[Rfam]
RNA sequence: CCAAAGGCUCUUUUAAGAGCCAUCCAUAUAGUCUGUAAAAGAAUG
Numbered sequence: 001c002c003a004a005a006g007g008c009u010c011u012u013u014u015a016a017g018a019g020c021c022a023u024c025c026a027u028a029u030a031g032u033c034u035g036u037a038a039a040a041g042a043a044u045g
Base pairs, nucleotide, nucleotide: 006021007020008019009018010017011016